RNA: ffh sRNA
Organism: Sandarakinorhabdus fusca
RNA sequence: GCGUCCAUGGAUGCACGCUGGCCGGCGAGGUUUCGCCCGCCGGCGUAAUUUCG
Numbered sequence: 001g002c003g004u005c006c007a008u009g010g011a012u013g014c015a016c017g018c019u020g021g022c023c024g025g026c027g028a029g030g031u032u033u034c035g036c037c038c039g040c041c042g043g044c045g046u047a048a049u050u051u052c053g
Stems, first nucleotide, its partner, number of pairs: 016045007025036004